[Rfam]
RNA sequence: GGGCCGAGGCGAGACGAAGAUCCGCUGGGCGAUGAAGAUGGUCGCUCCAGUCCGGCGGGGAGUCAGUAGCGAAACCGGCGCCUCCUUUC
Numbered sequence: 001g002g003g004c005c006g007a008g009g010c011g012a013g014a015c016g017a018a019g020a021u022c023c024g025c026u027g028g029g030c031g032a033u034g035a036a037g038a039u040g041g042u043c044g045c046u047c048c049a050g051u052c053c054g055g056c057g058g059g060g061a062g063u064c065a066g067u068a069g070c071g072a073a074a075c076c077g078g079c080g081c082c083u084c085c086u087u088u089c
Stems, first nucleotide, its partner, number of pairs: 001089003006084006013064003022058008040076002042072005
RNA: c-di-GMP-II-GAG riboswitch aptamer